[Rfam]
RNA sequence: AAAUGUGAUAAUGGGCAAAAUGUUCAACUGCUGAAUUGGCUGAAUGAAACUAGCCUUUCUGAACAUCC
Numbered sequence: 001a002a003a004u005g006u007g008a009u010a011a012u013g014g015g016c017a018a019a020a021u022g023u024u025c026a027a028c029u030g031c032u033g034a035a036u037u038g039g040c041u042g043a044a045u046g047a048a049a050c051u052a053g054c055c056u057u058u059c060u061g062a063a064c065a066u067c068c
Stems, first nucleotide, its partner, number of pairs: 003066004
Small nucleolar RNA Z40: a 68-nucleotide RNA from Jaculus jaculus. Pairs were carried over by alignment from the consensus structure, which was predicted with PFOLD. Rfam 15.1 lists 615 matches to the family in 541 species. A search with the family's covariance model found it, with a score of 70 bits. NCBI's taxonomy places the organism under Eukaryota, Craniata, Gnathostomata, Dipnotetrapodomorpha, Jaculus. Rfam links the family to the GO terms nucleolus and RNA processing. It is annotated as a C/D-box small nucleolar RNA.